[Rfam]
This 131-nucleotide sequence from Rhodoferax sp. AJA081-3 belongs to the Rfam family "ZMP/ZTP riboswitch aptamer (pfl RNA motif)".
A search with the family's covariance model found it, with a score of 54 bits.
Taxonomically the source falls in Rhodoferax (Bacteria, Pseudomonadota, Betaproteobacteria, Burkholderiales).
The literature on the family includes a 2015 paper in Mol Cell by Kim et al., "An ancient riboswitch class in bacteria regulates purine biosynthesis and one-carbon metabolism".

RNA sequence: CAUACCGUACGCGACUGGCGAUAGGCGCCCAAGCCCAAAGGUUUGAGGCGCUGACGUGGGAUCACCACUGGGAAGCGUGCCGCAGCAUCUGCACAGGUGUUUGCGUUCAGCCGUUCGCCUGGGCAGCCCUU
Number, nucleotide and partner (000 for none) at each position: 001c000002a000003u084004a000005c082006c000007g080008u079009a078010c077011g076012c075013g000014a000015c072016u071017g119018g118019c117020g116021a115022u000023a000024g000025g000026c000027g000028c000029c000030c000031a000032a000033g000034c000035c000036c000037a000038a000039a000040g000041g000042u000043u000044u000045g000046a000047g000048g000049c000050g000051c000052u000053g000054a000055c000056g068057u067058g066059g065060g000061a000062u000063c000064a000065c059066c058067a057068c056069u000070g000071g016072g015073a000074a000075g012076c011077g010078u009079g008080c007081c000082g005083c000084a003085g000086c000087a000088u000089c000090u000091g000092c000093a000094c000095a000096g000097g000098u000099g000100u000101u000102u000103g000104c000105g000106u000107u000108c126109a000110g124111c123112c122113g000114u000115u021116c020117g019118c018119c017120u000121g000122g112123g111124c110125a000126g108127c000128c000129c000130u000131u000